[Rfam]
RNA sequence: ACUAUCAAAUUAUAAAACAGAUGAAAUUUUCAAUGGUAAAUACAUAUUGGUGGUGGCGUCUUUUACAACUCGAUGAGUCGUGAAGGAGCAUUGCUUUAUGUAUUAUAUUAAUUGAACAUUAAACGUAUACAACGAGCCUUGUC
Numbered sequence: 001a002c003u004a005u006c007a008a009a010u011u012a013u014a015a016a017a018c019a020g021a022u023g024a025a026a027u028u029u030u031c032a033a034u035g036g037u038a039a040a041u042a043c044a045u046a047u048u049g050g051u052g053g054u055g056g057c058g059u060c061u062u063u064u065a066c067a068a069c070u071c072g073a074u075g076a077g078u079c080g081u082g083a084a085g086g087a088g089c090a091u092u093g094c095u096u097u098a099u100g101u102a103u104u105a106u107a108u109u110a111a112u113u114g115a116a117c118a119u120u121a122a123a124c125g126u127a128u129a130c131a132a133c134g135a136g137c138c139u140u141g142u143c
Stems, first nucleotide, its partner, number of pairs: 036108003040103007049095004056089002059086003066080001068078003
RNA: Bacteroidete tryptophan peptide leader RNA